[Rfam]
RNA sequence: GGUGAUAAACGCGCAUGUAAUAAACGGAUCGGACCCGGGGGCGGUACCCGGCGACUCCACCAAAAAUCCCUUCAUUUGAGGGCGGUAUGGGGUCGAAAUAGGAUCGACGGACGUCUAAAGAUGUUAGCUUUUACUCGGCUGUCUGCCACCGUUAUCGGCGAAAACUGUACAAUUGCAAAUGACAAUCGUGCUCCGGUAGCUCUAGCUGCGUAA
Numbered sequence: 001g002g003u004g005a006u007a008a009a010c011g012c013g014c015a016u017g018u019a020a021u022a023a024a025c026g027g028a029u030c031g032g033a034c035c036c037g038g039g040g041g042c043g044g045u046a047c048c049c050g051g052c053g054a055c056u057c058c059a060c061c062a063a064a065a066a067u068c069c070c071u072u073c074a075u076u077u078g079a080g081g082g083c084g085g086u087a088u089g090g091g092g093u094c095g096a097a098a099u100a101g102g103a104u105c106g107a108c109g110g111a112c113g114u115c116u117a118a119a120g121a122u123g124u125u126a127g128c129u130u131u132u133a134c135u136c137g138g139c140u141g142u143c144u145g146c147c148a149c150c151g152u153u154a155u156c157g158g159c160g161a162a163a164a165c166u167g168u169a170c171a172a173u174u175g176c177a178a179a180u181g182a183c184a185a186u187c188g189u190g191c192u193c194c195g196g197u198a199g200c201u202c203u204a205g206c207u208g209c210g211u212a213a
Stems, first nucleotide, its partner, number of pairs: 001135005013124004025113002029110003035051005052095007136151003
RNA: permuted transfer-messenger RNA
Organism: Amylibacter sp. SFDW26